[Rfam]
RNA sequence: UUACAAUAUAAUAGGAACACUCAUAUAAUCGCGUGGAUAUGGCACGCAAGUUUCUACCGGGCACCGUAAAUGUCCGACUAUGGGUGAGCAAUGGAACCGC
Numbered sequence: 001u002u003a004c005a006a007u008a009u010a011a012u013a014g015g016a017a018c019a020c021u022c023a024u025a026u027a028a029u030c031g032c033g034u035g036g037a038u039a040u041g042g043c044a045c046g047c048a049a050g051u052u053u054c055u056a057c058c059g060g061g062c063a064c065c066g067u068a069a070a071u072g073u074c075c076g077a078c079u080a081u082g083g084g085u086g087a088g089c090a091a092u093g094g095a096a097c098c099g100c
Stems, first nucleotide, its partner, number of pairs: 018086008029049001031047005058076006